This 87-nucleotide RNA from Gossypium aridum belongs to the Rfam family "MIR7486 microRNA precursor family".
It scores 72 bits against the family's covariance model.
Gene Ontology terms of the family: RISC complex and miRNA-mediated post-transcriptional gene silencing.
The source organism's lineage runs through Eukaryota, Euphyllophyta, Magnoliopsida, Malvaceae and Gossypium.

Nucleotides: 087
Stems, first nucleotide, its partner, number of pairs: 001086010012075005019068003023064006030057008040047002
Number, partner (000 for none) and nucleotide at each position: 001086c002085a003084c004083g005082u006081u007080a008079g009078u010077g011000a012075g013074a014073g015072u016071u017000a018000c019068u020067g021066a022000c023064g024063u025062g026061g027060c028059a029000a030057c031056a032055a033054a034053u035052c036051g037050c038000a039000c040047c041046c042000u043000c044000u045000a046041g047040g048000a049000c050037g051036c052035g053034a054033u055032u056031u057030g058000c059028u060027g061026c062025c063024a064023u065000g066021u067020c068019a069000u070000c071016a072015a073014c074013u075012c076000g077010c078009g079008c080007u081006g082005a083004c084003g085002u086001g087000g